[Rfam]
Shown here is a 69-nucleotide RNA sequence from Takifugu rubripes, a member of the family "mir-202 microRNA precursor family".

RNA sequence: UCCUUUUUCCUAUGCAUAUACCUUUUUCAGAUGUAACUUUAAAGAGGCAUAGGGCAUGGGAAAAUGGGG
Numbered sequence: 001u002c003c004u005u006u007u008u009c010c011u012a013u014g015c016a017u018a019u020a021c022c023u024u025u026u027u028c029a030g031a032u033g034u035a036a037c038u039u040u041a042a043a044g045a046g047g048c049a050u051a052g053g054g055c056a057u058g059g060g061a062a063a064a065u066g067g068g069g
Stems, first nucleotide, its partner, number of pairs: 006063010017051003021047007
On this family, see Bentwich et al., Nat Genet 2005: "Identification of hundreds of conserved and nonconserved human microRNAs".